[Rfam]
RNA sequence: AUUUAUCACUAGGGGAGCCAUUGGCUGAGAGAUUUAUCGACCCUUAUGACCUGAUCUGGUUAGUACCAGCGUAGGCAAGUGCGAGAAAACUCCU
Numbered sequence: 001a002u003u004u005a006u007c008a009c010u011a012g013g014g015g016a017g018c019c020a021u022u023g024g025c026u027g028a029g030a031g032a033u034u035u036a037u038c039g040a041c042c043c044u045u046a047u048g049a050c051c052u053g054a055u056c057u058g059g060u061u062a063g064u065a066c067c068a069g070c071g072u073a074g075g076c077a078a079g080u081g082c083g084a085g086a087a088a089a090c091u092c093c094u
Base pairs, nucleotide, nucleotide: 007081008080009079010078011044012043013042014041017025018024019023032037050075051074052073053072056069057068058067059066
The family of this 94-nucleotide sequence from Fenollaria massiliensis is "TPP riboswitch aptamer (THI element)".
The base pairs follow the family's consensus structure, which is taken from published work.
Taxonomically the source falls in Fenollaria (Bacteria, Bacillati, Bacillota, Clostridia).